The record is a 153-nucleotide RNA from Geodermatophilus sp. Leaf369, which matches "c-di-AMP riboswitch aptamer (ydaO/yuaA leader)" in Rfam. The match comes from Rfam's covariance-model search (68 bits).

[Rfam]
RNA sequence: GGUCGGACGCCGCUGAGUCGCCUUCGGGCGAGCCGGGGACCCACCGAUCCACUGGGGUGAAUCCCGCGCUCCGGACCUCCGUCCGGUGUGCAGGUAGGGCUGCUUCCGCCCGAACCCGUCAGCUGACCUGGUAGGCGGCACGUCGGAAGACAC
Dot-bracket structure: ..........((((...(((........)))((((((....((.........))(((.....((.((((..................)))).))..((((.......))))...))).........)))))).))))................